[Rfam]
Rfam assigns this 136-nucleotide RNA sequence from Myotis lucifugus to the family "Small nucleolar RNA SNORA58". It is annotated as an H/ACA-box small nucleolar RNA. Rfam describes the family as follows. ACA52 is a member of the H/ACA class of snoRNA that guide the sites of modification of uridines to pseudouridines. The base pairs follow the family's consensus structure, which was predicted with PFOLD. Its family is annotated with RNA processing and nucleolus in the Gene Ontology.
RNA sequence: GGGCAUACCCGUAGACCUUGCCUGACUGUGCUCAUGGCUAGGCAGGGGGGACAGUGUAUGCAAGAGUAAUUUGGAGUUUGUGCCAGUUCUAGCCAGCCUACUCAGUGGCUGGAUAAGUUGCAUUACUUCAACAUUU
Numbered sequence: 001g002g003g004c005a006u007a008c009c010c011g012u013a014g015a016c017c018u019u020g021c022c023u024g025a026c027u028g029u030g031c032u033c034a035u036g037g038c039u040a041g042g043c044a045g046g047g048g049g050g051a052c053a054g055u056g057u058a059u060g061c062a063a064g065a066g067u068a069a070u071u072u073g074g075a076g077u078u079u080g081u082g083c084c085a086g087u088u089c090u091a092g093c094c095a096g097c098c099u100a101c102u103c104a105g106u107g108g109c110u111g112g113a114u115a116a117g118u119u120g121c122a123u124u125a126c127u128u129c130a131a132c133a134u135u136u
Stems, first nucleotide, its partner, number of pairs: 003061006016047009073129004078125001081122003093112005